[Rfam]
This 134-nucleotide RNA sequence from Aeromicrobium flavum belongs to the Rfam family "FMN riboswitch aptamer (RFN element)".
RNA sequence: CGCGUGCUCCGGGGUCGGUGCAAGUCCGAACCGGCGGUGACAGUCCGCGACCCGAGGUCCAGCUGGAUCGGACCGAGGUUGAACCGGUGGAACUCCGGUACCGACGGUGAAAGUCCGGAUGGAAGGCGCACGCU
Numbered sequence: 001c002g003c004g005u006g007c008u009c010c011g012g013g014g015u016c017g018g019u020g021c022a023a024g025u026c027c028g029a030a031c032c033g034g035c036g037g038u039g040a041c042a043g044u045c046c047g048c049g050a051c052c053c054g055a056g057g058u059c060c061a062g063c064u065g066g067a068u069c070g071g072a073c074c075g076a077g078g079u080u081g082a083a084c085c086g087g088u089g090g091a092a093c094u095c096c097g098g099u100a101c102c103g104a105c106g107g108u109g110a111a112a113g114u115c116c117g118g119a120u121g122g123a124a125g126g127c128g129c130a131c132g133c134u
Stems, first nucleotide, its partner, number of pairs: 003132005009126002016028003030114002032103002034048004043101002052078002083099005105117003